Small nucleolar RNA SNORA3/SNORA45 family: a 128-nucleotide RNA sequence from Balaenoptera musculus. Rfam's curators write: The members of this family belong to the H/ACA class of snoRNAs which are thought to guide the sites of modification of uridines to pseudouridines. This family includes mouse snoMBI-28 and human homologues ACA3 (SNORA3) and ACA3-2 (SNORA45). The family is grouped with related families in Rfam's "SNORA3 clan".
Nucleotides: 128
Base pairs, nucleotide, nucleotide: 002057004055005054006053007051008050009049010046011045013044014043015042016041018039021036022035023034024033068120069119070118071117072116073115074114080109081108082107083106084105086103087102088101089100091098
Number, partner (000 for none) and nucleotide at each position: 001000a002057u003000c004055g005054a006053g007051g008050c009049u010046a011045g012000u013044c014043a015042c016041a017000c018039u019000u020000g021036g022035g023034u024033a025000u026000c027000a028000g029000c030000u031000a032000u033024u034023g035022c036021c037000u038000u039018a040000a041016u042015g043014u044013g045011c046010u047000a048000g049009a050008g051007u052000c053006c054005u055004c056000c057002a058000a059000g060000a061000g062000u063000a064000a065000c066000u067000g068120c069119u070118g071117a072116c073115u074114u075000u076000a077000c078000u079000c080109a081108c082107u083106g084105g085000c086103u087102g088101u089100g090000g091098c092000c093000c094000u095000c096000a097000u098091g099000g100089c101088a102087u103086a104000g105084u106083c107082a108081g109080u110000c111000a112000c113000c114074a115073g116072g117071u118070u119069a120068g121000u122000g123000a124000c125000a126000c127000g128000u